[Rfam]
RNA: mir-192/215 microRNA precursor family
RNA sequence: ACAGGAAAAUGACCUAUGAAUUGACAGACAAUGUGGCUAAAUCUGUCUGUCAUUUCUGUAGGCCAAUAUUCUGU
Numbered sequence: 001a002c003a004g005g006a007a008a009a010u011g012a013c014c015u016a017u018g019a020a021u022u023g024a025c026a027g028a029c030a031a032u033g034u035g036g037c038u039a040a041a042u043c044u045g046u047c048u049g050u051c052a053u054u055u056c057u058g059u060a061g062g063c064c065a066a067u068a069u070u071c072u073g074u
Stems, first nucleotide, its partner, number of pairs: 001074006008067001010065002013062004018056003022052009